[Rfam]
RNA sequence: AUACCUUUCUCGGCCUUUUGGAUAAGAUAAGUGUAGUAUCAUCUUAUCAGUUUAAUAUCUGAUAUGCGGGCCAAUGGUCCACACCAUAUUAAAUUAACUUUUCGGGGAAGACCCAACACAGUAGCUUGCUGAUGGGCUUGCAAGCUUCACCCAUGCUGUGCACUCUAGCACGGACCUGGCGCACCCUAA
Numbered sequence: 001a002u003a004c005c006u007u008u009c010u011c012g013g014c015c016u017u018u019u020g021g022a023u024a025a026g027a028u029a030a031g032u033g034u035a036g037u038a039u040c041a042u043c044u045u046a047u048c049a050g051u052u053u054a055a056u057a058u059c060u061g062a063u064a065u066g067c068g069g070g071c072c073a074a075u076g077g078u079c080c081a082c083a084c085c086a087u088a089u090u091a092a093a094u095u096a097a098c099u100u101u102u103c104g105g106g107g108a109a110g111a112c113c114c115a116a117c118a119c120a121g122u123a124g125c126u127u128g129c130u131g132a133u134g135g136g137c138u139u140g141c142a143a144g145c146u147u148c149a150c151c152c153a154u155g156c157u158g159u160g161c162a163c164u165c166u167a168g169c170a171c172g173g174a175c176c177u178g179g180c181g182c183a184c185c186c187u188a189a
Stems, first nucleotide, its partner, number of pairs: 008027003012023001014021002045064006066082001068080005107141001109139002112136003122131003144182002147179003151173002154170003
U2 spliceosomal RNA: a 189-nucleotide RNA sequence from Prunus dulcis.
A reference for the family is Zwieb (1997), "The uRNA database", Nucleic Acids Res.
By type it is a spliceosomal small nuclear RNA.
Lineage of the source: Eukaryota > Spermatophyta > Gunneridae > Amygdaleae > Prunus.
Its Rfam clan is "U2 clan".
From the family's description: U2 is a small nuclear RNA (snRNA) component of the spliceosome (involved in pre-mRNA splicing). Complementary binding between U2 snRNA (in an area lying towards the 5' end but 3' to hairpin I) and the branchpoint sequence (BPS) of the intron results the bulging out of an unpaired adenosine, on the BPS, which initiates a nucleophilic attack at the intronic 5' splice site, thus starting the first of two transesterification reactions that mediate splicing.
The family's consensus secondary structure is taken from published work.
It scores 105 bits against the family's covariance model.